[Rfam]
RNA: mir-290 microRNA precursor family
Organism: Rhinolophus ferrumequinum
RNA sequence: GUGGCACUCAAAUGUGGAAGCACUCUUCGGAUGUCUAGGCGGAAAGUGCUGCAAUAUUUGAGUGUCAC
Numbered sequence: 001g002u003g004g005c006a007c008u009c010a011a012a013u014g015u016g017g018a019a020g021c022a023c024u025c026u027u028c029g030g031a032u033g034u035c036u037a038g039g040c041g042g043a044a045a046g047u048g049c050u051g052c053a054a055u056a057u058u059u060g061a062g063u064g065u066c067a068c
Stems, first nucleotide, its partner, number of pairs: 004065009014055002017052001019050006026044003